The family of this 160-nucleotide RNA sequence from Salmonella enterica is "Salmonella enterica sRNA STnc300". It is one of the family's seed sequences. The source organism's lineage runs through Bacteria, Enterobacterales, Salmonella, Salmonella enterica and Salmonella enterica subsp. arizonae. By type it is a small RNA. Pairs were carried over by alignment from the consensus structure, which was predicted with CMfinder.
RNA sequence: UUUUUAAUAACUAAUUGAAAUUUAUUGUUUUUAUUUAAGGCCCCAUCUGAUUUUUAAAAAUGUCAUUAAAACUUAUUAAUAUAAUAUCUUUAUGUCGUGGUUGAACUCAUAUAAUGAAAAGGUCGACGGUUCUCGUUCCUCAGGACGAUAUCCUUUUGAG
Numbered sequence: 001u002u003u004u005u006a007a008u009a010a011c012u013a014a015u016u017g018a019a020a021u022u023u024a025u026u027g028u029u030u031u032u033a034u035u036u037a038a039g040g041c042c043c044c045a046u047c048u049g050a051u052u053u054u055u056a057a058a059a060a061u062g063u064c065a066u067u068a069a070a071a072c073u074u075a076u077u078a079a080u081a082u083a084a085u086a087u088c089u090u091u092a093u094g095u096c097g098u099g100g101u102u103g104a105a106c107u108c109a110u111a112u113a114a115u116g117a118a119a120a121g122g123u124c125g126a127c128g129g130u131u132c133u134c135g136u137u138c139c140u141c142a143g144g145a146c147g148a149u150a151u152c153c154u155u156u157u158g159a160g
Base pairs, nucleotide, nucleotide: 017055018054019053020052026045027044031040032039068089070087073084074083075082076081095128098125099124100123101122107117108116109115133148134147135146136145137144138143